[Rfam]
RNA sequence: GGCUGCUUCUCGCCUCUGUCCAGCUGUGUGGCCUUGGACAAGCCUCUUGGUUACACAGCUGGACAGAGGCACGAAACAGCC
Numbered sequence: 001g002g003c004u005g006c007u008u009c010u011c012g013c014c015u016c017u018g019u020c021c022a023g024c025u026g027u028g029u030g031g032c033c034u035u036g037g038a039c040a041a042g043c044c045u046c047u048u049g050g051u052u053a054c055a056c057a058g059c060u061g062g063a064c065a066g067a068g069g070c071a072c073g074a075a076a077c078a079g080c081c
Stems, first nucleotide, its partner, number of pairs: 001081005007075003012070022036047003